[Rfam]
RNA sequence: UGACGGGGGCCCGCACAAGCAGUGGAGUAUGUGGUUUAAUUCGAAGCAACGCGAAGAACCUUACCAGGUCUUGACAUCGAGUGACGUACCUAGAGAUAGGUAUUUUCUUCGGAACACAAAGACAGGUGGUGCAUGGUUGUCGUCAGCUCGUGUCGUGAGAUGUUGGGUUAAGUCCCGCAACGAGCGCAACCCUUACCAUUAGUUGCUACGCAAGAGCACUCUAAUGGGACUGCCGUUGACAAAACGGAGGAAGGUGGGGAUGACGUCAAAUCAUCAUGCCCCUUAUGACCUGGGCUACACACGUACUACAAUGGCAAUAAAACAGAGGGAAGCAAUACAGCGAUGUGGAGCAAAUCCCCAAAAAUUGUCCCAGUUCAGAUUGCAGGCUGCAACUCGCCUGCAUGAAGUCGGAAUUGCUAGUAAUCGCAGAUCAGCAUGCUGCGGUGAAUACGUUCCCGGGCCUUGUACACACCGCCCGUCACACCAUGGGAGUCGGUAACACCCAAAGCCGGUCGUCUAACCUUCGGGAGGACGCCGUCUAAGGUGGGAUUGAUGACUGGGGUGAAGUCGUAACAAGG
Numbered sequence: 001u002g003a004c005g006g007g008g009g010c011c012c013g014c015a016c017a018a019g020c021a022g023u024g025g026a027g028u029a030u031g032u033g034g035u036u037u038a039a040u041u042c043g044a045a046g047c048a049a050c051g052c053g054a055a056g057a058a059c060c061u062u063a064c065c066a067g068g069u070c071u072u073g074a075c076a077u078c079g080a081g082u083g084a085c086g087u088a089c090c091u092a093g094a095g096a097u098a099g100g101u102a103u104u105u106u107c108u109u110c111g112g113a114a115c116a117c118a119a120a121g122a123c124a125g126g127u128g129g130u131g132c133a134u135g136g137u138u139g140u141c142g143u144c145a146g147c148u149c150g151u152g153u154c155g156u157g158a159g160a161u162g163u164u165g166g167g168u169u170a171a172g173u174c175c176c177g178c179a180a181c182g183a184g185c186g187c188a189a190c191c192c193u194u195a196c197c198a199u200u201a202g203u204u205g206c207u208a209c210g211c212a213a214g215a216g217c218a219c220u221c222u223a224a225u226g227g228g229a230c231u232g233c234c235g236u237u238g239a240c241a242a243a244a245c246g247g248a249g250g251a252a253g254g255u256g257g258g259g260a261u262g263a264c265g266u267c268a269a270a271u272c273a274u275c276a277u278g279c280c281c282c283u284u285a286u287g288a289c290c291u292g293g294g295c296u297a298c299a300c301a302c303g304u305a306c307u308a309c310a311a312u313g314g315c316a317a318u319a320a321a322a323c324a325g326a327g328g329g330a331a332g333c334a335a336u337a338c339a340g341c342g343a344u345g346u347g348g349a350g351c352a353a354a355u356c357c358c359c360a361a362a363a364a365u366u367g368u369c370c371c372a373g374u375u376c377a378g379a380u381u382g383c384a385g386g387c388u389g390c391a392a393c394u395c396g397c398c399u400g401c402a403u404g405a406a407g408u409c410g411g412a413a414u415u416g417c418u419a420g421u422a423a424u425c426g427c428a429g430a431u432c433a434g435c436a437u438g439c440u441g442c443g444g445u446g447a448a449u450a451c452g453u454u455c456c457c458g459g460g461c462c463u464u465g466u467a468c469a470c471a472c473c474g475c476c477c478g479u480c481a482c483a484c485c486a487u488g489g490g491a492g493u494c495g496g497u498a499a500c501a502c503c504c505a506a507a508g509c510c511g512g513u514c515g516u517c518u519a520a521c522c523u524u525c526g527g528g529a530g531g532a533c534g535c536c537g538u539c540u541a542a543g544g545u546g547g548g549a550u551u552g553a554u555g556a557c558u559g560g561g562g563u564g565a566a567g568u569c570g571u572a573a574c575a576a577g578g
Stems, first nucleotide, its partner, number of pairs: 001469002003466003007463007015453002019417005024309001026307008034298002040055004064293007077122002081117003086103007105114003125282002128280004134276002136271003139267001141265002146185006152161003164177004191259004196227007206216002230250002233247005313369006327358003332351002337346003376407001381402007423445007472577001474574001477570002482564004487559003492554006500546004508539001510537004515533004521528002
Dot-bracket structure: (((((.(((((((.((..((((((.((((((((((....((((........))))........(((((((......((..(((..(((((((....))))))).(((....))))))...))..((.((((..((((((.((...(((((((((....)))..((((......))))..)))))).....((((.(((((((...((.......))....)))))))..((.(((((.....))))).)).....))))....)).).)))...))))))))....)))))))...)).)))))))).)...((((((........(((..((...(((....)))...))....))).....))))))......(....(((((((........)))))))....).....))))).....(((((((.........)))))))......))...)))))))))).))..(.(..((...((((.(((..((((((..((((....(.((((.((((..((....)).)))))))).)...))))..))))))..))).))))....))...)..).
RNA: Bacterial small subunit ribosomal RNA, nucleotides 895 to 1472